[Rfam]
RNA sequence: UAAAACUACAAAACUUGACCAGUAUCAUUGGCUGUCUGGGUAUCACUUACAUCCGGACGGUCUCUCUAAGCUGGGAGAUAGAUCCCCGCCAAACUUUUGGCGGAGAGCAAUCUAAGUUCUGUUGCUUGUGAGGCCUCACCUCCAGCAACACUAAUGUUGCUCGCACAUUU
Numbered sequence: 001u002a003a004a005a006c007u008a009c010a011a012a013a014c015u016u017g018a019c020c021a022g023u024a025u026c027a028u029u030g031g032c033u034g035u036c037u038g039g040g041u042a043u044c045a046c047u048u049a050c051a052u053c054c055g056g057a058c059g060g061u062c063u064c065u066c067u068a069a070g071c072u073g074g075g076a077g078a079u080a081g082a083u084c085c086c087c088g089c090c091a092a093a094c095u096u097u098u099g100g101c102g103g104a105g106a107g108c109a110a111u112c113u114a115a116g117u118u119c120u121g122u123u124g125c126u127u128g129u130g131a132g133g134c135c136u137c138a139c140c141u142c143c144a145g146c147a148a149c150a151c152u153a154a155u156g157u158u159g160c161u162c163g164c165a166c167a168u169u170u
Stems, first nucleotide, its partner, number of pairs: 019074005031061010105162004110157002121149006130142002133139001
RNA: Small nucleolar RNA snR161